[Rfam]
RNA sequence: UUUACAGAGCCAGUUUGGCAUGCUGGCCGCCUCCAAGAAUCACACCAUGCCAAGAAUUAACACCUUAUAUAAAAAUGGAGGUGGACAGAAUGCCAAAAUGGCUCUGCAAU
Numbered sequence: 001u002u003u004a005c006a007g008a009g010c011c012a013g014u015u016u017g018g019c020a021u022g023c024u025g026g027c028c029g030c031c032u033c034c035a036a037g038a039a040u041c042a043c044a045c046c047a048u049g050c051c052a053a054g055a056a057u058u059a060a061c062a063c064c065u066u067a068u069a070u071a072a073a074a075a076u077g078g079a080g081g082u083g084g085a086c087a088g089a090a091u092g093c094c095a096a097a098a099u100g101g102c103u104c105u106g107c108a109a110u
Stems, first nucleotide, its partner, number of pairs: 011100001015096006024087002027084008

Source information
The record is a 110-nucleotide sequence from Hevea brasiliensis, which matches "MIR394 microRNA precursor family" in Rfam. Rfam links the family to the GO terms miRNA-mediated post-transcriptional gene silencing and RISC complex. A search with the family's covariance model found it, with a score of 72 bits. For this family Rfam cites "MicroRNAs and other small RNAs enriched in the Arabidopsis RNA-dependent RNA polymerase-2 mutant" (Lu et al., Genome Res, 2006).